[Rfam]
terC RNA: a 65-nucleotide sequence from Chenggangzhangella methanolivorans. The match comes from Rfam's covariance-model search (53 bits). The organism belongs to Chenggangzhangella, within Bacteria.
RNA sequence: AGAUUGGUCCGGGCCCCUCUGGCGUGCUUUCCCCAAGCGGAGGCGCGUGAUGUCGGACUGCCCAC
Numbered sequence: 001a002g003a004u005u006g007g008u009c010c011g012g013g014c015c016c017c018u019c020u021g022g023c024g025u026g027c028u029u030u031c032c033c034c035a036a037g038c039g040g041a042g043g044c045g046c047g048u049g050a051u052g053u054c055g056g057a058c059u060g061c062c063c064a065c
Base pairs, nucleotide, nucleotide: 006059007058008057009056010055011054012053022048023047024046025045026044027043028042029041030040031039